Notes:
The family of this 133-nucleotide RNA sequence from Oryzias latipes is "Small nucleolar RNA SNORA70". Rfam classes the family as an H/ACA-box small nucleolar RNA. Rfam's curators write: snoRNA U70 seems to be exclusive to mammals and is a member of the H/ACA class of snoRNA which contain H (ANANNA) and ACA box motifs. The family has 43 seed sequences and 5,173 matches in Rfam 15.1. Rfam's curators put it in the seed alignment. Its family is annotated with RNA processing and nucleolus in the Gene Ontology. A reference for the family is Charette and Gray (2000), "Pseudouridine in RNA: what, where, how, and why", IUBMB Life.

RNA sequence: CUGCAGCUUAUUAAGCCGACUGGUUGUGUUCUCGUACAUCUCCAGUGUGCAAAGGCUGCAGACAGAGACUCUUUGGUUGUGUAUGUCCUCAGCUGUGAGGUGCUGAGUGCUUUAAGGGACCACUGAGACAAAA
Numbered sequence: 001c002u003g004c005a006g007c008u009u010a011u012u013a014a015g016c017c018g019a020c021u022g023g024u025u026g027u028g029u030u031c032u033c034g035u036a037c038a039u040c041u042c043c044a045g046u047g048u049g050c051a052a053a054g055g056c057u058g059c060a061g062a063c064a065g066a067g068a069c070u071c072u073u074u075g076g077u078u079g080u081g082u083a084u085g086u087c088c089u090c091a092g093c094u095g096u097g098a099g100g101u102g103c104u105g106a107g108u109g110c111u112u113u114a115a116g117g118g119a120c121c122a123c124u125g126a127g128a129c130a131a132a133a
Base pairs, nucleotide, nucleotide: 002051003050004049005048019046020045021044022043023040025038026037075121076120077119086109088107089106090105091104